[Rfam]
RNA sequence: GAGCAAUGACUUAACUUUGCACUAAUUGUGAACGAUGGGUCGUCACACACAUUUGAUUAUAAGAUGAUAAAACGUGCAUCUGAGCUU
Numbered sequence: 001g002a003g004c005a006a007u008g009a010c011u012u013a014a015c016u017u018u019g020c021a022c023u024a025a026u027u028g029u030g031a032a033c034g035a036u037g038g039g040u041c042g043u044c045a046c047a048c049a050c051a052u053u054u055g056a057u058u059a060u061a062a063g064a065u066g067a068u069a070a071a072a073c074g075u076g077c078a079u080c081u082g083a084g085c086u087u
Stems, first nucleotide, its partner, number of pairs: 001087004
The family of this 87-nucleotide sequence from Anisodus acutangulus is "small nucleolar RNA snoR114". Lineage of the source: Eukaryota > Tracheophyta > eudicotyledons > Pentapetalae > Anisodus. For this family Rfam cites "Mining small RNA sequencing data: a new approach to identify small nucleolar RNAs in Arabidopsis" (Chen and Wu, Nucleic Acids Res, 2009). By type it is a C/D-box small nucleolar RNA. Pairs were carried over by alignment from the consensus structure, which was predicted with RNAalifold. It scores 52 bits against the family's covariance model.